[Rfam]
RNA sequence: ACCCUUUGCGCCGCAGUCAAUAUCGGCUGAAGGCAUCGUAUUAUUGUCACAGCCAGUAUUGAUGAACGGUGUAAUGGG
Numbered sequence: 001a002c003c004c005u006u007u008g009c010g011c012c013g014c015a016g017u018c019a020a021u022a023u024c025g026g027c028u029g030a031a032g033g034c035a036u037c038g039u040a041u042u043a044u045u046g047u048c049a050c051a052g053c054c055a056g057u058a059u060u061g062a063u064g065a066a067c068g069g070u071g072u073a074a075u076g077g078g
Stems, first nucleotide, its partner, number of pairs: 002078003006074008016063008025054005032048004
The record is a 78-nucleotide RNA from Trichobilharzia regenti, which matches "mir-2_2 microRNA precursor family" in Rfam. Its family is annotated with miRNA-mediated post-transcriptional gene silencing and RISC complex in the Gene Ontology. The match comes from Rfam's covariance-model search (94 bits).